[Rfam]
RNA sequence: GGCCGGGAGGCCCAGGGAAUAAAAUACCUGCGCGCAGGGAAUACCUGGGGCAGUACCUGUUGCUGUUGUCAACCUCCCGGCCGCCCAAUU
Number, nucleotide and partner (000 for none) at each position: 001g082002g081003c080004c079005g078006g077007g076008a075009g074010g000011c000012c048013c047014a046015g045016g000017g000018a042019a000020u000021a000022a000023a000024a000025u000026a000027c038028c037029u036030g000031c000032g000033c000034g000035c000036a029037g028038g027039g000040a000041a000042u018043a000044c000045c015046u014047g013048g012049g067050g066051c065052a064053g063054u062055a000056c000057c000058u000059g000060u000061u000062g054063c053064u052065g051066u050067u049068g000069u000070c000071a000072a000073c000074c009075u008076c007077c006078c005079g004080g003081c002082c001083g000084c000085c000086c000087a000088a000089u000090u000

The record is a 90-nucleotide sequence from Alkalilimnicola ehrlichii, which matches "sRNA-Xcc1" in Rfam. For this family Rfam cites "HrpG, a key hrp regulatory protein of Xanthomonas campestris pv. vesicatoria is homologous to two-component response regulators" (Wengelnik et al., Mol Plant Microbe Interact, 1996). NCBI's taxonomy places the organism under Bacteria, Pseudomonadati, Pseudomonadota, Chromatiales, Alkalilimnicola. Rfam classes the family as a small RNA. The base pairs follow the family's consensus structure, which was predicted with RNAalifold. It scores 62 bits against the family's covariance model.